[Rfam]
RNA sequence: UGGGCAGUAUCAUGAAUUUGGAUAAUUUUAUACAAAUUUGAACUGCACCUGAAAUAAACCAUGCAAAAAAUAAUGAUAUUCUGCCUUGAUCCGGGUGCCGGACUGGGACGGAGGG
Numbered sequence: 001u002g003g004g005c006a007g008u009a010u011c012a013u014g015a016a017u018u019u020g021g022a023u024a025a026u027u028u029u030a031u032a033c034a035a036a037u038u039u040g041a042a043c044u045g046c047a048c049c050u051g052a053a054a055u056a057a058a059c060c061a062u063g064c065a066a067a068a069a070a071u072a073a074u075g076a077u078a079u080u081c082u083g084c085c086u087u088g089a090u091c092c093g094g095g096u097g098c099c100g101g102a103c104u105g106g107g108a109c110g111g112a113g114g115g
Stems, first nucleotide, its partner, number of pairs: 002049002004046005010041002081111003084107003088103001090102003

Source information: The record is a 115-nucleotide sequence from Peribacillus saganii, which matches "pan motif" in Rfam. The family's RNA type in Rfam is cis-regulatory element. The base pairs follow the family's consensus structure, which is taken from published work. A search with the family's covariance model found it, with a score of 57 bits. Taxonomically the source falls in Peribacillus (Bacteria, Bacillota, Caryophanales, Bacillaceae).